Rfam assigns this 75-nucleotide sequence to the family "ASpks TB sRNA". A search with the family's covariance model found it, with a score of 65 bits. The family's RNA type in Rfam is antisense RNA.

RNA sequence: CUUCAAUGAGCCCAGCCACAGCGGAUGGCCGGACGAGCGGCCCUUUCCGUAGGUGGCGAGCAGGGCGCCCGCCUC
Numbered sequence: 001c002u003u004c005a006a007u008g009a010g011c012c013c014a015g016c017c018a019c020a021g022c023g024g025a026u027g028g029c030c031g032g033a034c035g036a037g038c039g040g041c042c043c044u045u046u047c048c049g050u051a052g053g054u055g056g057c058g059a060g061c062a063g064g065g066c067g068c069c070c071g072c073c074u075c
Stems, first nucleotide, its partner, number of pairs: 014026001016024002032070001038065001043060003047056003